[Rfam]
Description:
Rfam assigns this 182-nucleotide RNA sequence from Polypterus senegalus to the family "U2 spliceosomal RNA". About the family: U2 is a small nuclear RNA (snRNA) component of the spliceosome (involved in pre-mRNA splicing). Complementary binding between U2 snRNA (in an area lying towards the 5' end but 3' to hairpin I) and the branchpoint sequence (BPS) of the intron results the bulging out of an unpaired adenosine, on the BPS, which initiates a nucleophilic attack at the intronic 5' splice site, thus starting the first of two transesterification reactions that mediate splicing. Lineage of the source: Eukaryota > Bilateria > Euteleostomi > Polypteriformes > Polypterus. For this family Rfam cites "The uRNA database" (Zwieb, Nucleic Acids Res, 1997). The base pairs follow the family's consensus structure, which is taken from published work. Its Rfam clan is "U2 clan". Rfam classes the family as a spliceosomal small nuclear RNA. Its family is annotated with U2 snRNP, pre-mRNA branch point binding and mRNA branch site recognition in the Gene Ontology.
RNA sequence: ACAGUUUUGUUUCUUAAUAAUAAAAAAAAAAAAAUCUGUUCUUAUCAGUUUAAUAUUGAUACGUCCCCUAUCUGGGGACCAUAUAUUAAAUUGAUUUUUGGAACAGGGAGAUGGAAUAGGGGCUUCUCGUCCACUCCACGAUCGACCUGGUAUUGCAGUACUUCCAGGAGCGUGCACUUUCU
Numbered sequence: 001a002c003a004g005u006u007u008u009g010u011u012u013c014u015u016a017a018u019a020a021u022a023a024a025a026a027a028a029a030a031a032a033a034a035u036c037u038g039u040u041c042u043u044a045u046c047a048g049u050u051u052a053a054u055a056u057u058g059a060u061a062c063g064u065c066c067c068c069u070a071u072c073u074g075g076g077g078a079c080c081a082u083a084u085a086u087u088a089a090a091u092u093g094a095u096u097u098u099u100g101g102a103a104c105a106g107g108g109a110g111a112u113g114g115a116a117u118a119g120g121g122g123c124u125u126c127u128c129g130u131c132c133a134c135u136c137c138a139c140g141a142u143c144g145a146c147c148u149g150g151u152a153u154u155g156c157a158g159u160a161c162u163u164c165c166a167g168g169a170g171c172g173u174g175c176a177c178u179u180u181c182u
Base pairs, nucleotide, nucleotide: 007023008022009021010017011016043061044060045059046058047057048056063079064078065077066076067075068074107137108136109135110134113131114130119128121127122126140175143172144171146168147167148166149165150164